[Rfam]
RNA sequence: CUGAAGGGUUAUGUCGAGGAGUCGAAUGAUGAGGUAACGCUCUGAAAGGCUCCCUCUUCGUCGAAUAGUAUGCUGUUUAGUAAGAAAAAGCGUAUUAUAAGCUCGGCUAAUAGGUGCGAGAAUUUACCGUAACAGUUUGGCUGACGAAAUCCUCCCAAAUGAACGGCGGGGGUUGAUGGAUAUAAAAUCUUACAA
Numbered sequence: 001c002u003g004a005a006g007g008g009u010u011a012u013g014u015c016g017a018g019g020a021g022u023c024g025a026a027u028g029a030u031g032a033g034g035u036a037a038c039g040c041u042c043u044g045a046a047a048g049g050c051u052c053c054c055u056c057u058u059c060g061u062c063g064a065a066u067a068g069u070a071u072g073c074u075g076u077u078u079a080g081u082a083a084g085a086a087a088a089a090g091c092g093u094a095u096u097a098u099a100a101g102c103u104c105g106g107c108u109a110a111u112a113g114g115u116g117c118g119a120g121a122a123u124u125u126a127c128c129g130u131a132a133c134a135g136u137u138u139g140g141c142u143g144a145c146g147a148a149a150u151c152c153u154c155c156c157a158a159a160u161g162a163a164c165g166g167c168g169g170g171g172g173u174u175g176a177u178g179g180a181u182a183u184a185a186a187a188u189c190u191u192a193c194a195a
Stems, first nucleotide, its partner, number of pairs: 018053006031043001033041002055186001057184001061106004065098010076087003113183001117179001122177003126173002128146003134142002150171004155166002
Shown here is a 195-nucleotide sequence from Alteribacillus bidgolensis, a member of the family "Group II catalytic intron D1-D4-5". The family has 139 seed sequences and 720 matches in Rfam 15.1. A search with the family's covariance model found it, with a score of 82 bits. Pairs were carried over by alignment from the consensus structure. Rfam describes the family as follows. Group II introns are found in rRNA, tRNA and mRNA of organelles in fungi, plants and protists, and also in mRNA in bacteria.